[Rfam]
RNA: Bacterial RNase P class A
RNA sequence: GAAGUUGACUAAAAACAGUCGCUGUUUAGUUUUUAAAAAUUAAAAAGAGGAAAGUCCGGGCUCCAUAGAGCAGGGUGCCAGAUAACAUCUGGAAAGCGUGAGCUUAUGACUAGUGCAACAGAAAAUAAACCACCUAUUUUGUAAUAUAUAAAAAUAUGGCCAGGGUGAAAAGGCGUGGUAAGAGCACACCGCAUAAUUGGUAACAAUUCAUGGCAUGGUAAACUCCACCCGGAGCAAAGCCAAAUAUAGGAUAAAUUUUUUGUACUGCUCGUACUUCUUAAACCUGGGUAGGCUGCUUGAAUUAGUAAGUGAUUGCUAAUCUAGAUGAAUGACUGUUAAAACAGAACCCGGCUUACACGAGUCAACUUCAAUA
Number, nucleotide and partner (000 for none) at each position: 001g369002a368003a367004g366005u365006u364007g363008a362009c361010u360011a000012a000013a000014a337015a336016c335017a334018g333019u332020c331021g000022c047023u046024g000025u044026u043027u042028a041029g040030u039031u000032u000033u000034u000035a000036a000037a000038a000039a030040u029041u028042a027043a026044a025045a000046a023047g022048a000049g000050g000051a000052a354053a353054g352055u000056c351057c350058g349059g348060g347061c234062u233063c232064c231065a000066u000067a000068g270069a269070g268071c267072a000073g230074g229075g228076u227077g226078c092079c091080a090081g089082a088083u000084a000085a000086c000087a000088u082089c081090u080091g079092g078093a107094a105095a104096g103097c102098g000099u000100g000101a000102g097103c096104u095105u094106a000107u093108g225109a224110c000111u000112a000113g223114u222115g219116c218117a000118a000119c000120a000121g000122a000123a000124a000125a000126u000127a000128a000129a000130c164131c163132a000133c159134c158135u156136a155137u154138u153139u152140u151141g000142u000143a000144a000145u000146a000147u000148a000149u000150a000151a140152a139153a138154a137155u136156a135157u000158g134159g133160c000161c000162a000163g131164g130165g000166u000167g000168a000169a000170a000171a000172g190173g189174c000175g187176u186177g185178g000179u000180a000181a000182g000183a000184g000185c177186a176187c175188a000189c173190c172191g214192c212193a211194u210195a208196a207197u206198u205199g204200g000201u000202a000203a000204c199205a198206a197207u196208u195209c000210a194211u193212g192213g000214c191215a000216u000217g000218g116219u115220a000221a000222a114223c113224u109225c108226c077227a076228c075229c074230c073231g064232g063233a062234g061235c000236a000237a000238a294239g293240c292241c291242a000243a000244a000245u000246a000247u000248a285249g284250g283251a000252u000253a279254a278255a000256u000257u000258u000259u000260u000261u000262g274263u273264a272265c271266u000267g071268c070269u069270c068271g265272u264273a263274c262275u000276u000277c000278u254279u253280a000281a000282a000283c250284c249285u248286g000287g000288g000289u000290a000291g241292g240293c239294u238295g000296c000297u000298u000299g000300a000301a320302u319303u318304a317305g316306u315307a314308a313309g000310u000311g000312a000313u308314u307315g306316c305317u304318a303319a302320u301321c000322u000323a000324g000325a000326u000327g000328a000329a000330u000331g020332a019333c018334u017335g016336u015337u014338a000339a000340a000341a000342c000343a000344g000345a000346a000347c060348c059349c058350g057351g056352c054353u053354u052355a000356c000357a000358c000359g000360a010361g009362u008363c007364a006365a005366c004367u003368u002369c001370a000371a000372u000373a000